RNA: nhaA-I RNA
RNA sequence: GGGUGUUGCCGCUGCAAGGUGCAGUGGCGCAGGUUCAAGCGUCGGUCGGGCCGCCACG
Numbered sequence: 001g002g003g004u005g006u007u008g009c010c011g012c013u014g015c016a017a018g019g020u021g022c023a024g025u026g027g028c029g030c031a032g033g034u035u036c037a038a039g040c041g042u043c044g045g046u047c048g049g050g051c052c053g054c055c056a057c058g
Stems, first nucleotide, its partner, number of pairs: 005030002008028007040058003044055003